RNA: Manganese Mn2+ riboswitch aptamer (yybP-ykoY)
Organism: Shewanella woodyi
RNA sequence: UCCACUACUUCAGGGGAGUAGCCACCAAAGAUUUUCUACCAUUAGAGAAUAGUUGGGUGAACAUCAACAUACUUGGCCACAUCGCCAUGGUGUUCACGACAAUCACACUUAAGCUGAGAUUGUU
Number, nucleotide and partner (000 for none) at each position: 001u000002c000003c000004a000005c000006u000007a000008c000009u000010u000011c000012a000013g000014g000015g000016g000017a000018g000019u000020a000021g000022c000023c000024a000025c000026c055027a054028a053029a000030g000031a000032u000033u000034u000035u000036c000037u000038a000039c000040c000041a000042u000043u000044a000045g000046a000047g000048a000049a000050u000051a000052g000053u028054u027055g026056g000057g097058u096059g095060a094061a093062c092063a091064u090065c089066a088067a000068c000069a000070u000071a000072c000073u000074u087075g086076g085077c084078c000079a000080c000081a000082u000083c000084g077085c076086c075087a074088u066089g065090g064091u063092g062093u061094u060095c059096a058097c057098g124099a123100c122101a121102a120103u119104c118105a000106c000107a000108c000109u000110u000111a000112a000113g000114c000115u000116g000117a000118g104119a103120u102121u101122g100123u099124u098